The family of this 59-nucleotide RNA sequence from Tupaia belangeri is "mir-190 microRNA precursor family". The family has 76 seed sequences and 1,667 matches in Rfam 15.1. Taxonomically the source falls in Tupaia belangeri (Eukaryota, Metazoa, Bilateria, Tetrapoda). Its Rfam clan is "mir-50 clan". Rfam links the family to the GO terms RISC complex and miRNA-mediated post-transcriptional gene silencing. The family's consensus secondary structure was predicted with RNAalifold.

RNA sequence: UGAUAUGUUUGAUAUUGGGUUGUUUAAUUAGGAACCAACUAAAUGUCAAACAUAUUCUU
Number, nucleotide and partner (000 for none) at each position: 001u000002g056003a055004u054005a053006u052007g051008u050009u049010u048011g047012a046013u045014a044015u043016u042017g000018g040019g039020u038021u037022g036023u000024u000025u000026a000027a000028u000029u000030a000031g000032g000033a000034a000035c000036c022037a021038a020039c019040u018041a000042a016043a015044u014045g013046u012047c011048a010049a009050a008051c007052a006053u005054a004055u003056u002057c000058u000059u000